RNA: Guanidine-II riboswitch aptamer (mini-ykkC)
RNA sequence: GCGCGAGGACGACCUCCCCCUCAUGGGCAUCACAUCGGGACGACCCGG
Numbered sequence: 001g002c003g004c005g006a007g008g009a010c011g012a013c014c015u016c017c018c019c020c021u022c023a024u025g026g027g028c029a030u031c032a033c034a035u036c037g038g039g040a041c042g043a044c045c046c047g048g
Base pairs, nucleotide, nucleotide: 001020003018005016006015007014008013035048036047037046038045039044
Dot-bracket structure: (.(.((((....)))).).)..............(((((....)))))